RNA sequence: GGUGGCAAGUUUGAGGCCGUAGCUUAAGUGCUUACAGUGUGACCCAUGUCAGAUUCCAGUGAAUCUGCAAAUUCUGCU
Numbered sequence: 001g002g003u004g005g006c007a008a009g010u011u012u013g014a015g016g017c018c019g020u021a022g023c024u025u026a027a028g029u030g031c032u033u034a035c036a037g038u039g040u041g042a043c044c045c046a047u048g049u050c051a052g053a054u055u056c057c058a059g060u061g062a063a064u065c066u067g068c069a070a071a072u073u074c075u076g077c078u
Stems, first nucleotide, its partner, number of pairs: 015044002018041001021078003026073002028040003050067007
A member of the RNA family "Mammalian CPEB3 ribozyme" from Alligator mississippiensis, 78 nucleotides long. Pairs were carried over by alignment from the consensus structure, which is taken from published work.